Shown here is a 112-nucleotide RNA, a member of the family "drum RNA". By type it is a small RNA. Rfam describes the family as follows. Firmicutes, Bacteroidetes (1 example), Proteobacteria (2 examples), Spirochaetes (2 examples).
RNA sequence: GGGUGCUGAAGCAAUCGACUGGUUCGAUUUCGGUUGGUUGUGGGGCCAGACUGUGGGUUAUGCGAAAAUCACAGGCCGAAUGGAUUCUUAGAAUCGAAUGAAAGCGCUUCAU
Number, nucleotide and partner (000 for none) at each position: 001g000002g047003g046004u045005g000006c000007u000008g000009a000010a000011g041012c040013a039014a038015u037016c036017g035018a034019c033020u032021g031022g000023u000024u079025c078026g077027a000028u000029u000030u000031c021032g020033g019034u018035u017036g016037g015038u014039u013040g012041u011042g000043g000044g000045g004046c003047c002048a000049g000050a000051c000052u000053g000054u000055g000056g000057g000058u000059u000060a000061u000062g107063c106064g105065a000066a000067a000068a000069u000070c000071a000072c000073a000074g000075g000076c000077c026078g025079a024080a000081u000082g000083g095084a094085u093086u092087c000088u000089u000090a000091g000092a086093a085094u084095c083096g000097a000098a000099u000100g000101a000102a000103a000104g000105c064106g063107c062108u000109u000110c000111a000112u000